[Rfam]
RNA sequence: ACCUGUUGCGGGCGGCAGCUGAGGGUGCCCGCGACACAUGACAGAACACCGUGCCACGGGAACAAACGGGGCACUUCAGGGCGUU
Numbered sequence: 001a002c003c004u005g006u007u008g009c010g011g012g013c014g015g016c017a018g019c020u021g022a023g024g025g026u027g028c029c030c031g032c033g034a035c036a037c038a039u040g041a042c043a044g045a046a047c048a049c050c051g052u053g054c055c056a057c058g059g060g061a062a063c064a065a066a067c068g069g070g071g072c073a074c075u076u077c078a079g080g081g082c083g084u085u
Base pairs, nucleotide, nucleotide: 004036005035006034007033008032009031010030011029012028013027014026016024051074052073053072054071055070057068058067
nrdJ RNA: an 85-nucleotide RNA sequence from Streptomyces sp. F-1.